HNH endonuclease-associated RNA and ORF (HEARO) RNA: a 238-nucleotide sequence from Candidatus Uabimicrobium amorphum. Rfam classes the family as a non-coding RNA gene.

RNA sequence: GUCAACUACCGCCACUUAGUACCUAGCGGUACUUGAAGUGGGAGCUUGUAAGCUCAGUUGUUGACCAGCUUCUAUCAAGUGUAACAAACUUGAUAAGCGUUAGAAACGAAAAUAUAGGUACUCUGGGGUGCUUCUCCAGCUCCAGACUCUACGGUUAGUAGUUAAACAGGUGUAGUGGGUUAAGCCAGUGCUGCUAACAUACAAAACCGUUUCAUAACAUUAGCGAGGAGACCUUUAC
Numbered sequence: 001g002u003c004a005a006c007u008a009c010c011g012c013c014a015c016u017u018a019g020u021a022c023c024u025a026g027c028g029g030u031a032c033u034u035g036a037a038g039u040g041g042g043a044g045c046u047u048g049u050a051a052g053c054u055c056a057g058u059u060g061u062u063g064a065c066c067a068g069c070u071u072c073u074a075u076c077a078a079g080u081g082u083a084a085c086a087a088a089c090u091u092g093a094u095a096a097g098c099g100u101u102a103g104a105a106a107c108g109a110a111a112a113u114a115u116a117g118g119u120a121c122u123c124u125g126g127g128g129u130g131c132u133u134c135u136c137c138a139g140c141u142c143c144a145g146a147c148u149c150u151a152c153g154g155u156u157a158g159u160a161g162u163u164a165a166a167c168a169g170g171u172g173u174a175g176u177g178g179g180u181u182a183a184g185c186c187a188g189u190g191c192u193g194c195u196a197a198c199a200u201a202c203a204a205a206a207c208c209g210u211u212u213c214a215u216a217a218c219a220u221u222a223g224c225g226a227g228g229a230g231a232c233c234u235u236u237a238c
Stems, first nucleotide, its partner, number of pairs: 001065006008058001010044001012041002015038002045052002068224003073095008099218004103213006118152002122146008130234001133231005154198009166189002169186003173182003